[Rfam]
RNA sequence: AUAUAAGAAAACUUCUGCUUUUUAGAUUCAUUGUGAAAUGAAUGUAUCUAGACUAGAUUAUAAUUUAGAUACAUCCAUUUCACAAUGAAUCUAAAAAGUAGAAGUUUUCUUAUAU
Numbered sequence: 001a002u003a004u005a006a007g008a009a010a011a012c013u014u015c016u017g018c019u020u021u022u023u024a025g026a027u028u029c030a031u032u033g034u035g036a037a038a039u040g041a042a043u044g045u046a047u048c049u050a051g052a053c054u055a056g057a058u059u060a061u062a063a064u065u066u067a068g069a070u071a072c073a074u075c076c077a078u079u080u081c082a083c084a085a086u087g088a089a090u091c092u093a094a095a096a097a098g099u100a101g102a103a104g105u106u107u108u109c110u111u112a113u114a115u
Base pairs, nucleotide, nucleotide: 002114003113004112005111006110007109009107010106011105012104013103015101016100017099018098019097020096021095022094023093024092025091027089028088029087030086031085032084033083034082035081036080037079038078039077040076042074043073044072049067050066051065052064